[Rfam]
RNA sequence: UAAGGAGUAAUAUCAAAUUUCUUGUUAUAUUAAGAGGAUUAGUAUUGCUUCUUAUUUU
Numbered sequence: 001u002a003a004g005g006a007g008u009a010a011u012a013u014c015a016a017a018u019u020u021c022u023u024g025u026u027a028u029a030u031u032a033a034g035a036g037g038a039u040u041a042g043u044a045u046u047g048c049u050u051c052u053u054a055u056u057u058u
Stems, first nucleotide, its partner, number of pairs: 001054013019036006
Plastid-psbA-3 3UTR RNA: a 58-nucleotide RNA sequence from Manihot esculenta. Rfam classes the family as a cis-regulatory element. Rfam describes the family as follows. Plastid psbA-3 is a non-coding RNA (ncRNA) present in plastids. The source organism's lineage runs through Eukaryota, Euphyllophyta, Mesangiospermae, fabids and Manihot. For this family Rfam cites "Retrograde signaling in plants: A critical review focusing on the GUN pathway and beyond" (Richter et al., Plant Commun, 2023). It scores 55 bits against the family's covariance model.